Small Cajal body-specific RNA 7: a 319-nucleotide RNA from Upupa epops.
The source organism's lineage runs through Eukaryota, Chordata, Teleostomi, Tetrapoda and Upupa.
A search with the family's covariance model found it, with a score of 171 bits.
It is annotated as a small Cajal body RNA.
The pairing is the family consensus, mapped onto this sequence.
Rfam 15.1 lists 570 matches to the family in 531 species.

RNA sequence: UGGAAGUGAUGAAAUAGAGGUAAUUGGAUGUCUCUUUGAAUGGAGUGCAUGUGAUAAAUGGAAUUUAAAUCAAACUGGGAGUGGGGUUGUGGGGAGUGUGUGUGUGUGUGUUUUUGUGUGUGUAAGAGGCUUGGAAUGGGGGUGCUGAUCGUGCUGUGCUGAUUCCGGAGUGCAUAUGAGGCGUGUUGUUCAACUCUGGGUGCUGCUUUACAACACUGCCAAUGAUUAAAGCCCAAAAGAAGCCCACCAUGACAAGCCUGGGAGCAUCCUAAAUCUCUAACAGGUUCAUUAAUGACAGUGAUCCUGUGAGCUGAUCUAA
Numbered sequence: 001u002g003g004a005a006g007u008g009a010u011g012a013a014a015u016a017g018a019g020g021u022a023a024u025u026g027g028a029u030g031u032c033u034c035u036u037u038g039a040a041u042g043g044a045g046u047g048c049a050u051g052u053g054a055u056a057a058a059u060g061g062a063a064u065u066u067a068a069a070u071c072a073a074a075c076u077g078g079g080a081g082u083g084g085g086g087u088u089g090u091g092g093g094g095a096g097u098g099u100g101u102g103u104g105u106g107u108g109u110g111u112u113u114u115u116g117u118g119u120g121u122g123u124a125a126g127a128g129g130c131u132u133g134g135a136a137u138g139g140g141g142g143u144g145c146u147g148a149u150c151g152u153g154c155u156g157u158g159c160u161g162a163u164u165c166c167g168g169a170g171u172g173c174a175u176a177u178g179a180g181g182c183g184u185g186u187u188g189u190u191c192a193a194c195u196c197u198g199g200g201u202g203c204u205g206c207u208u209u210a211c212a213a214c215a216c217u218g219c220c221a222a223u224g225a226u227u228a229a230a231g232c233c234c235a236a237a238a239g240a241a242g243c244c245c246a247c248c249a250u251g252a253c254a255a256g257c258c259u260g261g262g263a264g265c266a267u268c269c270u271a272a273a274u275c276u277c278u279a280a281c282a283g284g285u286u287c288a289u290u291a292a293u294g295a296c297a298g299u300g301a302u303c304c305u306g307u308g309a310g311c312u313g314a315u316c317u318a319a
Base pairs, nucleotide, nucleotide: 001318002317003316004315184215185214186213187212188211189210191205192204194202196200